[Rfam]
The family of this 99-nucleotide RNA from Turnera subulata is "Small nucleolar RNA snoR99". Rfam links the family to the GO terms RNA processing and nucleolus. The literature on the family includes a 2002 paper in Curr Biol by Marker et al., "Experimental RNomics: identification of 140 candidates for small non-messenger RNAs in the plant Arabidopsis thaliana". The family's consensus secondary structure was predicted with WAR. It is annotated as an H/ACA-box small nucleolar RNA.
RNA sequence: GUGCAACGGAGGGCAUCCUAGUUCCCAAUAUUGAUUUCCAUUUCAACUUUGUCAACUGAAUCUUUUUACUUGCAGUUGAUUUUCUUGGGUGGUACAUUA
Numbered sequence: 001g002u003g004c005a006a007c008g009g010a011g012g013g014c015a016u017c018c019u020a021g022u023u024c025c026c027a028a029u030a031u032u033g034a035u036u037u038c039c040a041u042u043u044c045a046a047c048u049u050u051g052u053c054a055a056c057u058g059a060a061u062c063u064u065u066u067u068a069c070u071u072g073c074a075g076u077u078g079a080u081u082u083u084c085u086u087g088g089g090u091g092g093u094a095c096a097u098u099a
Stems, first nucleotide, its partner, number of pairs: 038092005051080008